Annotation: Purine riboswitch aptamer: a 102-nucleotide RNA sequence from Cytobacillus depressus. From the family's description: Riboswitches are metabolite binding domains within certain messenger RNAs that serve as precision sensors for their corresponding targets.

RNA sequence: CAAUGAAGCGAAUAAUCCCCUCGUAUAAUAAUGGGAAUGUGGCCCAUAAGUUUCUACCCAAUAACCGUAAAUUAUUGGACUAUGAGGGAAAGUAAAUAUGCC
Numbered sequence: 001c002a003a004u005g006a007a008g009c010g011a012a013u014a015a016u017c018c019c020c021u022c023g024u025a026u027a028a029u030a031a032u033g034g035g036a037a038u039g040u041g042g043c044c045c046a047u048a049a050g051u052u053u054c055u056a057c058c059c060a061a062u063a064a065c066c067g068u069a070a071a072u073u074a075u076u077g078g079a080c081u082a083u084g085a086g087g088g089a090a091a092g093u094a095a096a097u098a099u100g101c102c
Stems, first nucleotide, its partner, number of pairs: 018088008029049001031047005058078007

It scores 88 bits against the family's covariance model.
The family has 133 seed sequences and 4,097 matches in Rfam 15.1.